[Rfam]
RNA sequence: UGAUACAAGUGUCGAAAGUAUAAAAAUUCGAUUAGGGCUUGCCUGAAAGCGAAUUUAUUAUCUUUUGACACGCCAAAAACAUGAGUAAGCAGCCAUUUUUGUUAAAAAUGAGCAAAUUACAAAUAUUUUUGUAAUUAUUAUAUUAAAUCAUUUGAAAAUGGUUGUCAAUAUCG
Numbered sequence: 001u002g003a004u005a006c007a008a009g010u011g012u013c014g015a016a017a018g019u020a021u022a023a024a025a026a027u028u029c030g031a032u033u034a035g036g037g038c039u040u041g042c043c044u045g046a047a048a049g050c051g052a053a054u055u056u057a058u059u060a061u062c063u064u065u066u067g068a069c070a071c072g073c074c075a076a077a078a079a080c081a082u083g084a085g086u087a088a089g090c091a092g093c094c095a096u097u098u099u100u101g102u103u104a105a106a107a108a109u110g111a112g113c114a115a116a117u118u119a120c121a122a123a124u125a126u127u128u129u130u131g132u133a134a135u136u137a138u139u140a141u142a143u144u145a146a147a148u149c150a151u152u153u154g155a156a157a158a159u160g161g162u163u164g165u166c167a168a169u170a171u172c173g
Base pairs, nucleotide, nucleotide: 001173002172003171004170005169010070011069012068013067017064018063020061021060022059023058025056026055027053028052029051030050032048033046035044036043037042075130076129077128078127079126081124082123085120086119087118088117092113093112094110095109096108097107098106133163134162135161136160137159138158139157140153142151143150

The record is a 173-nucleotide RNA from Catonella morbi, which matches "Clostridiales-1 RNA" in Rfam. NCBI's taxonomy places the organism under Bacteria, Bacillota, Clostridia, Lachnospiraceae, Catonella morbi. A search with the family's covariance model found it, with a score of 60 bits.